[Rfam]
RNA sequence: CCAGCCGGCCGGGCGGCCGCUCCCGUCAUAAGUCGAAAGACGGCGGGGGAGGAAAGUCCGGGCUCCACGGAGAAACGGUGCCGGGUAACGCCCGGCGGGGGCGACCCCAGGGAAAGUGCCACAGAAAACAAACCGCCCUUCGCUUCGUGCAAGGGGUAAGGGUGAAACGGUGGGGUAAGAGCCCACCGCGCUUCCAGCAAUGGCGGCGGCAGGGCAAACCCCACCGGGAGCAAGACCGAAUAGGAACGACGCGGCGGGAAACCGCCAGCCCUCUCCGGGUCGAUCGUUCGGGUGGGUUGCUUGAGGUGCCGCGCGAGCGGCAUCCCAGAGGAAUGGUCGCCGGACGGCGCAAGCCGUCGCACAGAACCCGGCUUAUAGGCCGGCUGGCUCU
Numbered sequence: 001c002c003a004g005c006c007g008g009c010c011g012g013g014c015g016g017c018c019g020c021u022c023c024c025g026u027c028a029u030a031a032g033u034c035g036a037a038a039g040a041c042g043g044c045g046g047g048g049g050a051g052g053a054a055a056g057u058c059c060g061g062g063c064u065c066c067a068c069g070g071a072g073a074a075a076c077g078g079u080g081c082c083g084g085g086u087a088a089c090g091c092c093c094g095g096c097g098g099g100g101g102c103g104a105c106c107c108c109a110g111g112g113a114a115a116g117u118g119c120c121a122c123a124g125a126a127a128a129c130a131a132a133c134c135g136c137c138c139u140u141c142g143c144u145u146c147g148u149g150c151a152a153g154g155g156g157u158a159a160g161g162g163u164g165a166a167a168c169g170g171u172g173g174g175g176u177a178a179g180a181g182c183c184c185a186c187c188g189c190g191c192u193u194c195c196a197g198c199a200a201u202g203g204c205g206g207c208g209g210c211a212g213g214g215c216a217a218a219c220c221c222c223a224c225c226g227g228g229a230g231c232a233a234g235a236c237c238g239a240a241u242a243g244g245a246a247c248g249a250c251g252c253g254g255c256g257g258g259a260a261a262c263c264g265c266c267a268g269c270c271c272u273c274u275c276c277g278g279g280u281c282g283a284u285c286g287u288u289c290g291g292g293u294g295g296g297u298u299g300c301u302u303g304a305g306g307u308g309c310c311g312c313g314c315g316a317g318c319g320g321c322a323u324c325c326c327a328g329a330g331g332a333a334u335g336g337u338c339g340c341c342g343g344a345c346g347g348c349g350c351a352a353g354c355c356g357u358c359g360c361a362c363a364g365a366a367c368c369c370g371g372c373u374u375a376u377a378g379g380c381c382g383g384c385u386g387g388c389u390c391u
Stems, first nucleotide, its partner, number of pairs: 001387010011376001012341007020049008054374003058371005063230004072275002076226005081095005096110001097108004111221002116219002118215003133161002135157006142150002169187006188210001189208004194203003234298004244289006268280004305324008
This 391-nucleotide RNA from Aureimonas sp. AU20 belongs to the Rfam family "Bacterial RNase P class A". Ribonuclease P (RNase P) is a ubiquitous endoribonuclease, found in archaea, bacteria and eukarya as well as chloroplasts and mitochondria. Its best characterised activity is the generation of mature 5'-ends of tRNAs by cleaving the 5'-leader elements of precursor-tRNAs. Lineage of the source: Bacteria > Pseudomonadati > Alphaproteobacteria > Hyphomicrobiales > Aureimonas. It is annotated as a ribozyme. A search with the family's covariance model found it, with a score of 302 bits. The family's consensus secondary structure is taken from published work.